Annotation: A member of the RNA family "Y RNA" from Prolemur simus, 102 nucleotides long. Taxonomically the source falls in Prolemur (Eukaryota, Theria, Boreoeutheria, Strepsirrhini). Rfam classes the family as a non-coding RNA gene.
RNA sequence: GGUUGGUCCGUGUGCGGUGAUGUUUGAGACUAAUUGAUCACAACCAGUUACAGAUUCCUUUGUUCCUUCUCCACUCCCACUGCUUCACUUGACCAGCCCUUA
Number, nucleotide and partner (000 for none) at each position: 001g098002g097003u096004u095005g094006g093007u092008c091009c000010g090011u000012g000013u000014g086015c000016g081017g080018u079019g078020a000021u000022g076023u000024u000025u000026g000027a000028g064029a063030c062031u000032a060033a059034u000035u000036g000037a000038u000039c000040a000041c000042a000043a000044c000045c000046a000047g000048u000049u000050a000051c000052a000053g000054a000055u000056u000057c000058c000059u033060u032061u000062g030063u029064u028065c000066c000067u000068u000069c000070u000071c000072c000073a000074c000075u000076c022077c000078c019079a018080c017081u016082g000083c000084u000085u000086c014087a000088c000089u000090u010091g008092a007093c006094c005095a004096g003097c002098c001099c000100u000101u000102a000